[Rfam]
RNA sequence: UGUUGUUCUGACUGUUUCAGAAGCUUAUAGCAUUGGAAAUGACUGCGUAUAAGCUCGUGAUCAACAGGCAGCACAACAG
Numbered sequence: 001u002g003u004u005g006u007u008c009u010g011a012c013u014g015u016u017u018c019a020g021a022a023g024c025u026u027a028u029a030g031c032a033u034u035g036g037a038a039a040u041g042a043c044u045g046c047g048u049a050u051a052a053g054c055u056c057g058u059g060a061u062c063a064a065c066a067g068g069c070a071g072c073a074c075a076a077c078a079g
Stems, first nucleotide, its partner, number of pairs: 002077005008071003012067005017060003022055008031047001033045001
RNA: mir-231 microRNA precursor family